[Rfam]
RNA sequence: AGUAUUAUAUAUAAUGGAUUGGGUAUAAGUCUGCAAAAUGGGCAGACGUUUCUACCAACCGCCAAACUGGUUGACUACCGCAUGGGUAGUCAAUUUU
Numbered sequence: 001a002g003u004a005u006u007a008u009a010u011a012u013a014a015u016g017g018a019u020u021g022g023g024u025a026u027a028a029g030u031c032u033g034c035a036a037a038a039u040g041g042g043c044a045g046a047c048g049u050u051u052c053u054a055c056c057a058a059c060c061g062c063c064a065a066a067c068u069g070g071u072u073g074a075c076u077a078c079c080g081c082a083u084g085g086g087u088a089g090u091c092a093a094u095u096u097u
Stems, first nucleotide, its partner, number of pairs: 018083002022079004029047006056073006

The record is a 97-nucleotide RNA from Lachnospiraceae bacterium 2_1_46FAA, which matches "Purine riboswitch aptamer" in Rfam. It scores 50 bits against the family's covariance model. Pairs were carried over by alignment from the consensus structure, which is taken from published work. The source organism's lineage runs through Bacteria, Bacillati, Clostridia, Lachnospirales and Lachnospiraceae. About the family: Riboswitches are metabolite binding domains within certain messenger RNAs that serve as precision sensors for their corresponding targets.